The family of this 71-nucleotide RNA from Artemisia annua is "Small nucleolar RNA Z105".
Taxonomically the source falls in Artemisia (Eukaryota, Magnoliopsida, asterids, Asteroideae).
The base pairs follow the family's consensus structure, which was predicted with CMfinder.
RNA sequence: CGAACAUAAUGAUGAUUGUUUAUUAUUCCGAUUAAUUCAUGAAUGGAUUAACAACCUCCUACUCAUUCUGA
Numbered sequence: 001c002g003a004a005c006a007u008a009a010u011g012a013u014g015a016u017u018g019u020u021u022a023u024u025a026u027u028c029c030g031a032u033u034a035a036u037u038c039a040u041g042a043a044u045g046g047a048u049u050a051a052c053a054a055c056c057u058c059c060u061a062c063u064c065a066u067u068c069u070g071a
Stems, first nucleotide, its partner, number of pairs: 006066002009063001026047002029041001